[Rfam]
RNA: Nuclear RNase P
Organism: Tetranychus urticae
RNA sequence: CUUGAAAUGAAUUCGCACAAGGGGUUUCAAGUGUCCCUGGGAAGGUCUGAGAAUGUCGCUUUUAGGUUCUUGCUGAACCCCUUCUUAAUGGAGGUCGGGUAGUUAGAAAUAAACUGGUUGACCAUGGAUUAUGGUAAGAGAGAUUGUAACUUUAUUAGUUACGAUUGAUACCUUACAUGGUUGACUGAGUUGAAAAUGACCCGAGACUAGCUCGUUUAAGCUCGAUGUGCGAAGUGGUUAGACUAUUGGUUUAACCAUUACUCAAUUCGGACUAUUACAUUUCAAG
Number, nucleotide and partner (000 for none) at each position: 001c286002u285003u284004g283005a000006a000007a280008u279009g278010a000011a000012u233013u232014c231015g230016c229017a228018c227019a000020a038021g037022g036023g035024g034025u000026u000027u000028c000029a000030a000031g000032u000033g000034u024035c023036c022037c021038u020039g000040g000041g000042a000043a000044g000045g000046u000047c270048u269049g268050a267051g266052a000053a000054u000055g207056u206057c205058g000059c000060u000061u000062u000063u000064a000065g079066g078067u077068u076069c075070u000071u000072g000073c000074u000075g069076a068077a067078c066079c065080c094081c093082u092083u091084c090085u000086u000087a000088a000089u000090g084091g083092a082093g081094g080095u204096c203097g202098g201099g200100u199101a000102g000103u000104u000105a000106g000107a000108a000109a000110u000111a000112a000113a000114c189115u188116g000117g000118u000119u000120g000121a000122c000123c000124a000125u000126g000127g000128a000129u000130u000131a000132u000133g000134g000135u000136a000137a000138g000139a000140g000141a000142g000143a000144u000145u000146g000147u000148a000149a000150c000151u000152u000153u000154a000155u000156u000157a000158g000159u000160u000161a000162c000163g000164a000165u000166u000167g000168a000169u000170a000171c000172c000173u000174u000175a000176c000177a000178u000179g000180g000181u000182u000183g000184a000185c000186u000187g000188a115189g114190u000191u000192g000193a000194a000195a000196a000197u000198g000199a100200c099201c098202c097203g096204a095205g057206a056207c055208u000209a000210g000211c000212u000213c000214g000215u000216u000217u000218a000219a000220g000221c000222u000223c000224g000225a000226u000227g018228u017229g016230c015231g014232a013233a012234g258235u257236g256237g255238u254239u253240a252241g251242a250243c249244u000245a000246u000247u000248g000249g243250u242251u241252u240253a239254a238255c237256c236257a235258u234259u000260a000261c000262u000263c000264a000265a000266u051267u050268c049269g048270g047271a000272c000273u000274a000275u000276u000277a000278c009279a008280u007281u000282u000283c004284a003285a002286g001